[Rfam]
RNA: Small nucleolar RNA SNORD79
RNA sequence: UACUGUUAAUGAUGCUUAAAAAUAAUGGGAAUCUCUCUGAAAGGAAUGAAGACAAAAUUUUUGAAAACUGAAACAGUA
Numbered sequence: 001u002a003c004u005g006u007u008a009a010u011g012a013u014g015c016u017u018a019a020a021a022a023u024a025a026u027g028g029g030a031a032u033c034u035c036u037c038u039g040a041a042a043g044g045a046a047u048g049a050a051g052a053c054a055a056a057a058u059u060u061u062u063g064a065a066a067a068c069u070g071a072a073a074c075a076g077u078a
Stems, first nucleotide, its partner, number of pairs: 001078007